Shown here is a 60-nucleotide RNA sequence from Catenulispora sp., a member of the family "Actino-pnp RNA".
It scores 57 bits against the family's covariance model.
Rfam classes the family as a cis-regulatory element.

[Rfam]
RNA sequence: GCCGAUCUUCGGUAGUGGCUCUCGGGAGGAUUCGCCCGGGGGCUUCGAUCGAAGACCGGG
Numbered sequence: 001g002c003c004g005a006u007c008u009u010c011g012g013u014a015g016u017g018g019c020u021c022u023c024g025g026g027a028g029g030a031u032u033c034g035c036c037c038g039g040g041g042g043c044u045u046c047g048a049u050c051g052a053a054g055a056c057c058g059g060g
Stems, first nucleotide, its partner, number of pairs: 002059003006055002009052005017044010028033001